[Rfam]
RNA sequence: CCAGUAACAUCAUUUGGAUGUGCAGCUUUAUCGAUAGAAGCACCUUCAACCAUUAAGAAGAAGCCUUUAUUGUUCUUAUCUAAUUUACUUAAUGCACUUUGUUC
Numbered sequence: 001c002c003a004g005u006a007a008c009a010u011c012a013u014u015u016g017g018a019u020g021u022g023c024a025g026c027u028u029u030a031u032c033g034a035u036a037g038a039a040g041c042a043c044c045u046u047c048a049a050c051c052a053u054u055a056a057g058a059a060g061a062a063g064c065c066u067u068u069a070u071u072g073u074u075c076u077u078a079u080c081u082a083a084u085u086u087a088c089u090u091a092a093u094g095c096a097c098u099u100u101g102u103u104c
Stems, first nucleotide, its partner, number of pairs: 004076001006074004013049002016046002019042003027034001055070001057068004084094001
This 104-nucleotide sequence from Staphylococcus capitis belongs to the Rfam family "Staphylococcus sRNA sau-13". Lineage of the source: Bacteria > Bacilli > Caryophanales > Staphylococcaceae > Staphylococcus capitis. By type it is a small RNA. For this family Rfam cites "Identification of differentially expressed small non-protein-coding RNAs in Staphylococcus aureus displaying both the normal and the small-colony variant phenotype" (Abu-Qatouseh et al., J Mol Med (Berl), 2010).